[Rfam]
RNA sequence: UCUUCGAGCUGAGUUAGUGAUUGGCCGAAGAUUAAUUGUUUUAUUGGAGAUUAUUAUGUCACUAAGUACUGAAGCGAAAGCGAAAAUCUUGGCUGAGUUCGGCCGCGGCGAA
Number, nucleotide and partner (000 for none) at each position: 001u000002c000003u000004u000005c000006g000007a000008g025009c024010u023011g022012a021013g000014u000015u000016a000017g000018u000019g000020a000021u012022u011023g010024g009025c008026c000027g000028a000029a000030g000031a000032u000033u000034a000035a000036u000037u000038g000039u000040u000041u000042u000043a000044u065045u064046g063047g062048a000049g060050a000051u000052u000053a000054u000055u000056a000057u000058g000059u000060c049061a000062c047063u046064a045065a044066g000067u000068a000069c000070u000071g000072a000073a000074g000075c000076g000077a000078a000079a000080g000081c000082g000083a000084a000085a000086a000087u000088c000089u000090u000091g000092g000093c000094u000095g000096a000097g000098u000099u000100c000101g000102g000103c000104c000105g000106c000107g000108g000109c000110g000111a000112a000
RNA: Ribosomal S15 leader